[Rfam]
RNA: U12 minor spliceosomal RNA
RNA sequence: GUGCCUCAAUCUAUUGAGUAAGGAAAUUAUUGGGCCCAGUUAAUCGCUGGGCAAUGUCCGUAAAGGGCGAAUCCGUUUUUGUAGGGUUCAGGUCGUCCCUUGAGCUGGCACCUACUUUGUGCUCGGCUCGGGUGAAGCGAUCUGCCUU
Numbered sequence: 001g002u003g004c005c006u007c008a009a010u011c012u013a014u015u016g017a018g019u020a021a022g023g024a025a026a027u028u029a030u031u032g033g034g035c036c037c038a039g040u041u042a043a044u045c046g047c048u049g050g051g052c053a054a055u056g057u058c059c060g061u062a063a064a065g066g067g068c069g070a071a072u073c074c075g076u077u078u079u080u081g082u083a084g085g086g087u088u089c090a091g092g093u094c095g096u097c098c099c100u101u102g103a104g105c106u107g108g109c110a111c112c113u114a115c116u117u118u119g120u121g122c123u124c125g126g127c128u129c130g131g132g133u134g135a136a137g138c139g140a141u142c143u144g145c146c147u148u
Base pairs, nucleotide, nucleotide: 004023005022006021008019034052035051036050037049038048039047055069056068057067058066059065083148084147085146086145087144090143091142092141093140094139095138096137099132100131102129103128104127105126106125107123108122109121110120111119